[Rfam]
RNA sequence: GCUGGUGUAGCUCAGAUGAUUAGAGCAUGUGGCUUUUAAACCACAAGGUUGAAGGUUCAAGCCCUUCCUCCAGCA
Numbered sequence: 001g002c003u004g005g006u007g008u009a010g011c012u013c014a015g016a017u018g019a020u021u022a023g024a025g026c027a028u029g030u031g032g033c034u035u036u037u038a039a040a041c042c043a044c045a046a047g048g049u050u051g052a053a054g055g056u057u058c059a060a061g062c063c064c065u066u067c068c069u070c071c072a073g074c075a
Stems, first nucleotide, its partner, number of pairs: 001074005007068001010026004028045005051067005
RNA: tRNA